[Rfam]
RNA sequence: ACCUAUGAAGAUUUGCCCGCUAUGUGAGGUGUAAAUAGCUCCAAGUCCUUGUUCUUACAGGGAGAACCUACUUGGGGUCCUACUCUCAAAUGAGAUGUAUGGGCUAUACUGAGGU
Numbered sequence: 001a002c003c004u005a006u007g008a009a010g011a012u013u014u015g016c017c018c019g020c021u022a023u024g025u026g027a028g029g030u031g032u033a034a035a036u037a038g039c040u041c042c043a044a045g046u047c048c049u050u051g052u053u054c055u056u057a058c059a060g061g062g063a064g065a066a067c068c069u070a071c072u073u074g075g076g077g078u079c080c081u082a083c084u085c086u087c088a089a090a091u092g093a094g095a096u097g098u099a100u101g102g103g104c105u106a107u108a109c110u111g112a113g114g115u
Base pairs, nucleotide, nucleotide: 001115002114003113047062048061049060050059051058
Notes: This 115-nucleotide RNA from Eragrostis curvula belongs to the Rfam family "Small nucleolar RNA Z278". It is annotated as a C/D-box small nucleolar RNA. Gene Ontology terms of the family: nucleolus and RNA processing. The family has 7 seed sequences and 1,130 matches in Rfam 15.1. NCBI's taxonomy places the organism under Eukaryota, Viridiplantae, Poales, Eragrostidinae, Eragrostis.